[Rfam]
RNA sequence: CCGUGCUAGGUGGGAAGGUAGCGGUGUCCUAUAACUCGCAAUCCGCUCUAGCGAGACUGAAGUCCUUUUCUAAGGCUGUCCGUAUGUUUGGUCUGCCUUUUGCACGUAGUGUUGACGAUUGGGUCCUACGCAAUGCGUACCCGCGAACCAUGUCAGGUCCGGAAGGAAGCAGCAUUAAGCGGCUUAUCGCAUGUGCCGUAGGGUUGCCUAAUCAGAGCUAACGACAAAAGUAACGCUUAUGUACGGCUGUCGAAGGAAGGUGCACGG
Dot-bracket structure: ((((((..(((((((.(.(...).).))))....(((((...........)))))))).....(((.((((..(((.(..(((((((..(...((..(((((...(((((......((((((((((((((((.((((.(.((((.....((((....(((....)))....))))...)))).)...))))))...))))))...))))))))...))).))..))))).))...)..))))))).).)))..))))))).))))))
Numbered sequence: 001c002c003g004u005g006c007u008a009g010g011u012g013g014g015a016a017g018g019u020a021g022c023g024g025u026g027u028c029c030u031a032u033a034a035c036u037c038g039c040a041a042u043c044c045g046c047u048c049u050a051g052c053g054a055g056a057c058u059g060a061a062g063u064c065c066u067u068u069u070c071u072a073a074g075g076c077u078g079u080c081c082g083u084a085u086g087u088u089u090g091g092u093c094u095g096c097c098u099u100u101u102g103c104a105c106g107u108a109g110u111g112u113u114g115a116c117g118a119u120u121g122g123g124u125c126c127u128a129c130g131c132a133a134u135g136c137g138u139a140c141c142c143g144c145g146a147a148c149c150a151u152g153u154c155a156g157g158u159c160c161g162g163a164a165g166g167a168a169g170c171a172g173c174a175u176u177a178a179g180c181g182g183c184u185u186a187u188c189g190c191a192u193g194u195g196c197c198g199u200a201g202g203g204u205u206g207c208c209u210a211a212u213c214a215g216a217g218c219u220a221a222c223g224a225c226a227a228a229a230g231u232a233a234c235g236c237u238u239a240u241g242u243a244c245g246g247c248u249g250u251c252g253a254a255g256g257a258a259g260g261u262g263c264a265c266g267g
Stems, first nucleotide, its partner, number of pairs: 001267006009058003012030004017025001019023001035055005064260003068257004074251003078247001081245007090236001094232002098229005106222002108219003117213008125202006131193002134191004139184001141182004150175004158167003
Bacterial large signal recognition particle RNA: a 267-nucleotide sequence from Viridibacillus arenosi. The literature on the family includes a 2003 paper in Nucleic Acids Res by Rosenblad et al., "SRPDB: Signal Recognition Particle Database". The signal recognition particle (SRP) is a universally conserved ribonucleoprotein involved in the co-translational targeting of proteins to membranes. Lineage of the source: Bacteria > Bacillati > Bacillota > Bacilli > Viridibacillus arenosi.